[Rfam]
tRNA: a 92-nucleotide RNA from Halanaerobacter jeridensis. The family's consensus secondary structure is taken from published work. By type it is a transfer RNA.
RNA sequence: GGAGAGAUACCCAAGUUGGCUGAAGGGGCGGGUUUGCUAAACCUGUAGUAGGACAUACUGUCCUAGCGAGGGUUCGAAUCCCUCUCUCUCCG
Number, nucleotide and partner (000 for none) at each position: 001g091002g090003a089004g088005a087006g086007a085008u000009a000010c027011c026012c025013a000014a000015g000016u000017u000018g000019g000020c000021u000022g000023a000024a000025g012026g011027g010028g000029c045030g044031g043032g042033u041034u000035u000036g000037c000038u000039a000040a000041a033042c032043c031044u030045g029046u000047a000048g000049u000050a000051g000052g000053a000054c000055a000056u000057a000058c000059u000060g000061u000062c000063c000064u000065a000066g000067c000068g084069a083070g082071g081072g080073u000074u000075c000076g000077a000078a000079u000080c072081c071082c070083u069084c068085u007086c006087u005088c004089u003090c002091c001092g000